[Rfam]
Shown here is a 230-nucleotide part of an RNA from Mycoplasma suis, a member of the family "Bacterial large subunit ribosomal RNA".
RNA sequence: GAGUUAUUGCAAGUUGCAAAGUUAAGCCUAAGAGGGUGGAGCUGGAGCGAAAGCGAGUCUUAAUAGGGCGUUAAGUAGGUUGCAAUAGACCCGAAAGGGGACGAGCUAUCCAUGAGCAGGUUGAAAUUUGGAUAAAACCAGAUGAAGGACUGAACCGACUGUCGUUGAAAUGAUAGCGGAGGACUUGUGGAUAGAGGUGAAAUUCCAAUCGAGUUCCCUGAUAGCUGGUU
Numbered sequence: 001g002a003g004u005u006a007u008u009g010c011a012a013g014u015u016g017c018a019a020a021g022u023u024a025a026g027c028c029u030a031a032g033a034g035g036g037u038g039g040a041g042c043u044g045g046a047g048c049g050a051a052a053g054c055g056a057g058u059c060u061u062a063a064u065a066g067g068g069c070g071u072u073a074a075g076u077a078g079g080u081u082g083c084a085a086u087a088g089a090c091c092c093g094a095a096a097g098g099g100g101a102c103g104a105g106c107u108a109u110c111c112a113u114g115a116g117c118a119g120g121u122u123g124a125a126a127u128u129u130g131g132a133u134a135a136a137a138c139c140a141g142a143u144g145a146a147g148g149a150c151u152g153a154a155c156c157g158a159c160u161g162u163c164g165u166u167g168a169a170a171u172g173a174u175a176g177c178g179g180a181g182g183a184c185u186u187g188u189g190g191a192u193a194g195a196g197g198u199g200a201a202a203u204u205c206c207a208a209u210c211g212a213g214u215u216c217c218c219u220g221a222u223a224g225c226u227g228g229u230u
Base pairs, nucleotide, nucleotide: 005087006086007085008084009083010082011081012080014078015077016076017075020043021042022041023040026037027036028035047054048053057069058068059067060066090228091227093225097218098217099216100215101214102213106194107193108192109191110190111189112188113187114186115185116184117182119151120150121149122148126143127142128141129140130139131138155179156178157177159176160175161174162173163172196206197205

NCBI's taxonomy places the organism under Bacteria, Mycoplasmatales, Mycoplasmataceae, Mycoplasma, Mycoplasma suis.